[Rfam]
RNA sequence: GCCGGGCGUAGUGGCGCACGCCUGUAAUCCAGUUACUUGGAGGCUGGGGUCUCAGAAUGGCUUGAGGGCGGGAUUCCUGGGGGUGGGCGUCCUAUGUAGAUCGGGUGUCCGCGCUAAGUUUGGCGUCAAUAUGGUGAACACGGAGGAGUCUGAGUUCUCCAGGUUGGUUAAAGAGGAGCGAACCGGCCCAGGGUGGAAACACAGCAGGCAAAAGCUCCCGCGUCAAACAGUAGUGGGAUAGCACCUGUGAAUAGGCGGUCGCUCACAGCCCGGUCGAGAUAGUCAAACUCGACUCUGU
Numbered sequence: 001g002c003c004g005g006g007c008g009u010a011g012u013g014g015c016g017c018a019c020g021c022c023u024g025u026a027a028u029c030c031a032g033u034u035a036c037u038u039g040g041a042g043g044c045u046g047g048g049g050u051c052u053c054a055g056a057a058u059g060g061c062u063u064g065a066g067g068g069c070g071g072g073a074u075u076c077c078u079g080g081g082g083g084u085g086g087g088c089g090u091c092c093u094a095u096g097u098a099g100a101u102c103g104g105g106u107g108u109c110c111g112c113g114c115u116a117a118g119u120u121u122g123g124c125g126u127c128a129a130u131a132u133g134g135u136g137a138a139c140a141c142g143g144a145g146g147a148g149u150c151u152g153a154g155u156u157c158u159c160c161a162g163g164u165u166g167g168u169u170a171a172a173g174a175g176g177a178g179c180g181a182a183c184c185g186g187c188c189c190a191g192g193g194u195g196g197a198a199a200c201a202c203a204g205c206a207g208g209c210a211a212a213a214g215c216u217c218c219c220g221c222g223u224c225a226a227a228c229a230g231u232a233g234u235g236g237g238a239u240a241g242c243a244c245c246u247g248u249g250a251a252u253a254g255g256c257g258g259u260c261g262c263u264c265a266c267a268g269c270c271c272g273g274u275c276g277a278g279a280u281a282g283u284c285a286a287a288c289u290c291g292a293c294u295c296u297g298u
Stems, first nucleotide, its partner, number of pairs: 001044003004023006028041003046296006058285005066275002069272004077268003081264006088257002091255005097249001102247007109237002112235005118228009127166004132161003136157004141152004168172001175218005186209003193202003

A member of the RNA family "Metazoan signal recognition particle RNA" from Desmophyllum pertusum, 298 nucleotides long. It scores 262 bits against the family's covariance model. Its family is annotated with signal recognition particle, endoplasmic reticulum targeting and SRP-dependent cotranslational protein targeting to membrane, signal sequence recognition in the Gene Ontology. On this family, see Wild et al., Curr Opin Struct Biol 2002: "Towards the structure of the mammalian signal recognition particle". Pairs were carried over by alignment from the consensus structure, which is taken from published work. About the family: The signal recognition particle (SRP) is a universally conserved ribonucleoprotein.